Rfam assigns this 364-nucleotide part of an RNA from Saccharopolyspora elongata to the family "Bacterial large subunit ribosomal RNA". Gene Ontology terms of the family: structural constituent of ribosome and ribosome. The source organism's lineage runs through Bacteria, Bacillati, Actinomycetes, Pseudonocardiales and Saccharopolyspora.

RNA sequence: CGGGUGAACUGUGGUUAAGGAAUUCGGCAAAUUGCCCCCGUAACUUUGGGAGAAGGGGGGCCAUUGCUGGUGAACACCCUUGCGGUGGGAGCUGGUGGUGGUCGCAGAGGCCAGGGAGAAGCGACUGUUUACUAAAAACACAGGUCCAUGCGAAGCCGUAAGGCGAUGUAUAUGGACUGACGCCUGCCCGGUGCUGGAACGUUAAGAGGACCCGUGAACCUGUAAGGGUGUAGCGGAGAAUUUAAGCGCCAGUAAACGGCGGUGGUAACUAUAACCAUCCUAAGGUAGCGAAAUUCCUUGUCGGGUAAGUUCCGACCUGCACGAAUGGCGUAACGACUUCUCCGCUGUCUCGACCACAGGCCCG
Numbered sequence: 001c002g003g004g005u006g007a008a009c010u011g012u013g014g015u016u017a018a019g020g021a022a023u024u025c026g027g028c029a030a031a032u033u034g035c036c037c038c039c040g041u042a043a044c045u046u047u048g049g050g051a052g053a054a055g056g057g058g059g060g061c062c063a064u065u066g067c068u069g070g071u072g073a074a075c076a077c078c079c080u081u082g083c084g085g086u087g088g089g090a091g092c093u094g095g096u097g098g099u100g101g102u103c104g105c106a107g108a109g110g111c112c113a114g115g116g117a118g119a120a121g122c123g124a125c126u127g128u129u130u131a132c133u134a135a136a137a138a139c140a141c142a143g144g145u146c147c148a149u150g151c152g153a154a155g156c157c158g159u160a161a162g163g164c165g166a167u168g169u170a171u172a173u174g175g176a177c178u179g180a181c182g183c184c185u186g187c188c189c190g191g192u193g194c195u196g197g198a199a200c201g202u203u204a205a206g207a208g209g210a211c212c213c214g215u216g217a218a219c220c221u222g223u224a225a226g227g228g229u230g231u232a233g234c235g236g237a238g239a240a241u242u243u244a245a246g247c248g249c250c251a252g253u254a255a256a257c258g259g260c261g262g263u264g265g266u267a268a269c270u271a272u273a274a275c276c277a278u279c280c281u282a283a284g285g286u287a288g289c290g291a292a293a294u295u296c297c298u299u300g301u302c303g304g305g306u307a308a309g310u311u312c313c314g315a316c317c318u319g320c321a322c323g324a325a326u327g328g329c330g331u332a333a334c335g336a337c338u339u340c341u342c343c344g345c346u347g348u349c350u351c352g353a354c355c356a357c358a359g360g361c362c363c364g
Base pairs, nucleotide, nucleotide: 001364002363003362004361009359010358011357012356013355014354015353016352018350019349020348035059036058037057038056039055044049060102061101062100063099064098065097066096067095068094069093070092071091103107115343116342117341118340119339120338121337122335123334126140127139128138143178144177145176146175147174148173149172150171151168155164156163157162181330182329183328184327186260187259188258191257192256193253194252195251196250197249200248201247202246206242207241212236213235214234215233218229219228220227221226261279262278263277264276265275266274280284290317300316301315302314303313304312305311